[Rfam]
RNA: Small nucleolar RNA U49
RNA sequence: UCCCUAUGAGGAAGCGAACCCAAAAGAUAGGAAGUGCCGUAUGACACUUAAACCCAACAAUUGAUAU
Numbered sequence: 001u002c003c004c005u006a007u008g009a010g011g012a013a014g015c016g017a018a019c020c021c022a023a024a025a026g027a028u029a030g031g032a033a034g035u036g037c038c039g040u041a042u043g044a045c046a047c048u049u050a051a052a053c054c055c056a057a058c059a060a061u062u063g064a065u066a067u
Stems, first nucleotide, its partner, number of pairs: 014061001032049005